[Rfam]
RNA sequence: CUUUAGUGCAUUGUAGUUGCAUUGCAUGUUAUAUAACAGUGCAAUGCAUCUGCUGUGCAAAUAUAG
Numbered sequence: 001c002u003u004u005a006g007u008g009c010a011u012u013g014u015a016g017u018u019g020c021a022u023u024g025c026a027u028g029u030u031a032u033a034u035a036a037c038a039g040u041g042c043a044a045u046g047c048a049u050c051u052g053c054u055g056u057g058c059a060a061a062u063a064u065a066g
Stems, first nucleotide, its partner, number of pairs: 001066002004063001006062001007059005013053004019047001021045007